[Rfam]
RNA sequence: GUGCAAAUAGGUGAUGAGGUCCACCAUAACUGCCUUGCCGAGGAAUUGGCCGGGAUGAUGACUUCUGCCCCACA
Numbered sequence: 001g002u003g004c005a006a007a008u009a010g011g012u013g014a015u016g017a018g019g020u021c022c023a024c025c026a027u028a029a030c031u032g033c034c035u036u037g038c039c040g041a042g043g044a045a046u047u048g049g050c051c052g053g054g055a056u057g058a059u060g061a062c063u064u065c066u067g068c069c070c071c072a073c074a
Stems, first nucleotide, its partner, number of pairs: 010025004016065006033054003